The family of this 84-nucleotide sequence from Lysinibacillus telephonicus is "c-di-GMP-I riboswitch aptamer". NCBI's taxonomy places the organism under Bacteria, Bacillati, Bacillota, Bacillaceae, Lysinibacillus. Rfam describes the family as follows. GEMM was predicted in a large-scale screen for bacterial structured RNA regulatory elements. Genes associated with GEMM are involved in a diverse array of functions, including chemotaxis regulation, signal transduction, secretion and chitin.
RNA sequence: UUACAAUAAAAGCAAACUCAUUGAAAAAUGAGGACGCAAAGCUUCAGGUCUAAGGUUCAUUGCUAUGACGGCUGGGUUGCAAUC
Numbered sequence: 001u002u003a004c005a006a007u008a009a010a011a012g013c014a015a016a017c018u019c020a021u022u023g024a025a026a027a028a029u030g031a032g033g034a035c036g037c038a039a040a041g042c043u044u045c046a047g048g049u050c051u052a053a054g055g056u057u058c059a060u061u062g063c064u065a066u067g068a069c070g071g072c073u074g075g076g077u078u079g080c081a082a083u084c
Stems, first nucleotide, its partner, number of pairs: 012037002017032006040078004045074003048069003055063002